[Rfam]
RNA: U4 spliceosomal RNA
Organism: Hymenochirus boettgeri
RNA sequence: AGCUUUGCGAGGCAGGAUACUAGCAAGAGGUUUAUAACGAGGCGUGAUUAUUGCCUAGGUGAAAACUUUUCCCAAUCCCCGCCCUGAUUGACUUGAAUACAGUCAGCAUUGGCAAUUUUUUGGACAGUCUCUAGGGGC
Number, nucleotide and partner (000 for none) at each position: 001a000002g000003c000004u000005u000006u000007g000008c000009g000010a000011g000012g000013c000014a000015g000016g000017a048018u047019a000020c000021u044022a000023g043024c042025a000026a000027g000028a000029g000030g038031u037032u036033u000034a000035u000036a032037a031038c030039g000040a000041g000042g024043c023044g021045u000046g000047a018048u017049u000050a000051u000052u000053g000054c000055c000056u000057a000058g000059g000060u000061g000062a000063a000064a000065a000066c000067u000068u000069u000070u000071c000072c000073c000074a000075a000076u000077c000078c000079c000080c000081g113082c112083c111084c000085u000086g000087a000088u106089u105090g104091a103092c102093u101094u000095g000096a000097a000098u000099a000100c000101a093102g092103u091104c090105a089106g088107c000108a000109u000110u000111g083112g082113c081114a000115a000116u000117u000118u000119u000120u000121u000122g000123g000124a000125c000126a000127g138128u137129c136130u135131c000132u000133a000134g000135g130136g129137g128138c127